Background:
This 79-nucleotide sequence from Janibacter alkaliphilus belongs to the Rfam family "mraW RNA". The match comes from Rfam's covariance-model search (51 bits). Pairs were carried over by alignment from the consensus structure, which is taken from published work. The source organism's lineage runs through Bacteria, Actinomycetota, Micrococcales, Intrasporangiaceae and Janibacter.
[Rfam]
RNA sequence: UGCCGCCCGGCCUCCAGCCGAGACGGCACCGACGCGACUUCCCCCGCGCCGGAACGUCCCGGAUGGGGACCAGGUGGCA
Numbered sequence: 001u002g003c004c005g006c007c008c009g010g011c012c013u014c015c016a017g018c019c020g021a022g023a024c025g026g027c028a029c030c031g032a033c034g035c036g037a038c039u040u041c042c043c044c045c046g047c048g049c050c051g052g053a054a055c056g057u058c059c060c061g062g063a064u065g066g067g068g069a070c071c072a073g074g075u076g077g078c079a
Stems, first nucleotide, its partner, number of pairs: 001079007009071002012068005018062003022058004029052003033048003